U2 spliceosomal RNA: a 205-nucleotide RNA sequence from Odocoileus virginianus. It is annotated as a spliceosomal small nuclear RNA. Clan: U2 clan. The organism belongs to Odocoileus virginianus, within Eukaryota. From the family's description: U2 is a small nuclear RNA (snRNA) component of the spliceosome (involved in pre-mRNA splicing). The base pairs follow the family's consensus structure, which is taken from published work.
RNA sequence: AUCGCUUUUUGGCCUUUUGGACUAAGAUCAAGUGUAGUAUCUGUUCUUACCAGUUUAAUAUCUGAUAUGUCCUCUAUCUGAGGACAGUAUAUUAAAUUUCUAAAUAGGUUGCAAAUAUGUACUGCUCCAGACCAUCUACCUUUUUUUUCCCUUGAGGAUUCACACUGACUCUUCUGCUUCUGUUUUCUAUAGAGGAAAAACAUAU
Dot-bracket structure: ......(((.((((....)).)).)))....................((.(((........))).)).((((((.....))))))...........................(((..((...((.(....).))..))..)))..(((((....((((..........................)))).....))))).......